[Rfam]
RNA sequence: GUCAAUCACCCCACCCUGAAGGGUGGAGCUUGCGGAGAAAUCCAAAAAGCUAGGUUGACCAGGGUAGUGGUAGCCAAUCCACGACGUUAAUAACAGGUCGUUCAGACACACCAGCGAGUGCUUCCUCAGCUCGCUGCUCUGUAAGGUCUUGAUCAUGCUGGACAAGGGUAAAGGUCCGAAGGUCUUGAUCGCGGCGCGCAAGCGCUGGAGCCGGUUGUUGACAGUCCCGAGGGGAGA
Numbered sequence: 001g002u003c004a005a006u007c008a009c010c011c012c013a014c015c016c017u018g019a020a021g022g023g024u025g026g027a028g029c030u031u032g033c034g035g036a037g038a039a040a041u042c043c044a045a046a047a048a049g050c051u052a053g054g055u056u057g058a059c060c061a062g063g064g065u066a067g068u069g070g071u072a073g074c075c076a077a078u079c080c081a082c083g084a085c086g087u088u089a090a091u092a093a094c095a096g097g098u099c100g101u102u103c104a105g106a107c108a109c110a111c112c113a114g115c116g117a118g119u120g121c122u123u124c125c126u127c128a129g130c131u132c133g134c135u136g137c138u139c140u141g142u143a144a145g146g147u148c149u150u151g152a153u154c155a156u157g158c159u160g161g162a163c164a165a166g167g168g169u170a171a172a173g174g175u176c177c178g179a180a181g182g183u184c185u186u187g188a189u190c191g192c193g194g195c196g197c198g199c200a201a202g203c204g205c206u207g208g209a210g211c212c213g214g215u216u217g218u219u220g221a222c223a224g225u226c227c228c229g230a231g232g233g234g235a236g237a
Stems, first nucleotide, its partner, number of pairs: 001059007010028001012025001015022002029049003062228003067082004086222009096212001108142002112136008122236006145190004151184004159178005